[Rfam]
RNA sequence: CUUGAUCAGAGAACCUUGGACUUCAGAUCAUCCCCGGGAAGGUGCGCCCACUUUCAUGCCGCCCCACCGAGGGU
Numbered sequence: 001c002u003u004g005a006u007c008a009g010a011g012a013a014c015c016u017u018g019g020a021c022u023u024c025a026g027a028u029c030a031u032c033c034c035c036g037g038g039a040a041g042g043u044g045c046g047c048c049c050a051c052u053u054u055c056a057u058g059c060c061g062c063c064c065c066a067c068c069g070a071g072g073g074u
Base pairs, nucleotide, nucleotide: 003030004029005028006027007026009023010022038055039054040053041052042051043050044049
This 74-nucleotide RNA sequence from Mycolicibacterium gilvum belongs to the Rfam family "Actinobacteria sRNA Ms_AS-8". Rfam's curators put it in the seed alignment. By type it is a small RNA. For this family Rfam cites "Identification of small RNAs in Mycobacterium smegmatis using heterologous Hfq" (Li et al., RNA, 2013).